[Rfam]
Shown here is a 94-nucleotide RNA sequence from Acipenser ruthenus, a member of the family "Vault RNA". Rfam 15.1 lists 2,873 matches to the family in 431 species. On this family, see Stadler et al., Mol Biol Evol 2009: "Evolution of Vault RNAs". From the family's description: This family of RNAs are found as part of the enigmatic vault ribonucleoprotein complex. The complex consists of a major vault protein (MVP), two minor vault proteins (VPARP and TEP1), and several small untranslated RNA molecules. It has been suggested that the vault complex is involved in drug resistance.

RNA sequence: GCGCCGGCUUAGCUCAGCGGUUACUUCAUUAAAGUUUCUGAUCUCAGGGAGUAUAUCUCGGAGGUUCUAACCACGGGCGCUGCCCGGCGUUUUU
Numbered sequence: 001g002c003g004c005c006g007g008c009u010u011a012g013c014u015c016a017g018c019g020g021u022u023a024c025u026u027c028a029u030u031a032a033a034g035u036u037u038c039u040g041a042u043c044u045c046a047g048g049g050a051g052u053a054u055a056u057c058u059c060g061g062a063g064g065u066u067c068u069a070a071c072c073a074c075g076g077g078c079g080c081u082g083c084c085c086g087g088c089g090u091u092u093u094u
Base pairs, nucleotide, nucleotide: 002089003088004087005086006085007084012078013077014076015075017074019072020071025070026069